The family of this 148-nucleotide sequence from a Propionibacteriales bacterium is "c-di-AMP riboswitch aptamer (ydaO/yuaA leader)".
Its family is annotated with regulation of gene expression and cyclic-di-AMP binding in the Gene Ontology.
RNA sequence: UCAGUGGUAACGACGGAAGCCCCGCGAUCCGGGGCCGGGGAACCACCAGUAACGCAUGGGGUGAAUCGGCGCGUCCAGGCGCGCCGUAGGGCAAGGUCGUCGCCCGAACCCGUCAGCUAACCCGGUCGGCGUGACGAACAGAGGAGUG
Numbered sequence: 001u002c003a004g005u006g007g008u009a010a011c012g013a014c015g016g017a018a019g020c021c022c023c024g025c026g027a028u029c030c031g032g033g034g035c036c037g038g039g040g041a042a043c044c045a046c047c048a049g050u051a052a053c054g055c056a057u058g059g060g061g062u063g064a065a066u067c068g069g070c071g072c073g074u075c076c077a078g079g080c081g082c083g084c085c086g087u088a089g090g091g092c093a094a095g096g097u098c099g100u101c102g103c104c105c106g107a108a109c110c111c112g113u114c115a116g117c118u119a120a121c122c123c124g125g126u127c128g129g130c131g132u133g134a135c136g137a138a139c140a141g142a143g144g145a146g147u148g
Stems, first nucleotide, its partner, number of pairs: 011131002014128001020033003034126006044058002059111003067086006089105004